[Rfam]
The family of this 99-nucleotide RNA from Rhynchospora breviuscula is "mir-393 microRNA precursor family". Taxonomically the source falls in Rhynchospora (Eukaryota, Embryophyta, Tracheophyta, Poales). It scores 75 bits against the family's covariance model.
RNA sequence: GGUGGAGAGCUCCAAAGGGAUCGCAUUGAUCUCUUUGUCUCGCUCUCUCUCAAGCUUAAUUAUCUAGCAGAUCAAUGCAAUUCCUUUGGAAUUCUCCAU
Numbered sequence: 001g002g003u004g005g006a007g008a009g010c011u012c013c014a015a016a017g018g019g020a021u022c023g024c025a026u027u028g029a030u031c032u033c034u035u036u037g038u039c040u041c042g043c044u045c046u047c048u049c050u051c052a053a054g055c056u057u058a059a060u061u062a063u064c065u066a067g068c069a070g071a072u073c074a075a076u077g078c079a080a081u082u083c084c085u086u087u088g089g090a091a092u093u094c095u096c097c098a099u
Base pairs, nucleotide, nucleotide: 002099003098004097005096006095008093009092011090012089013088014087015086016085017084018083019082020081021080023078024077025076026074028073029072030071031070032069036066